A member of the RNA family "Plastid-ndhJ 3UTR RNA" from Nymphaea ampla, 57 nucleotides long. The base pairs follow the family's consensus structure, which was predicted with LocARNA. Rfam 15.1 lists 869 matches to the family in 155 species. The sequence is in the family's curated seed alignment. Rfam describes the family as follows. Plastid ndhJ is a non-coding RNA (ncRNA) present in plastids. It was identified as a short stem-loop motif in the 3 prime untranslate region (3UTR) of ndhJ gene.
[Rfam]
RNA sequence: UCAUGAACUAUGUACCGCGCACAUCACUUAGAUGGGCCCCGGAAAGCAAAAAAUGUG
Dot-bracket structure: ..................((.((((.....)))).))....................
Numbered sequence: 001u002c003a004u005g006a007a008c009u010a011u012g013u014a015c016c017g018c019g020c021a022c023a024u025c026a027c028u029u030a031g032a033u034g035g036g037c038c039c040c041g042g043a044a045a046g047c048a049a050a051a052a053a054u055g056u057g
Stems, first nucleotide, its partner, number of pairs: 019037002022034004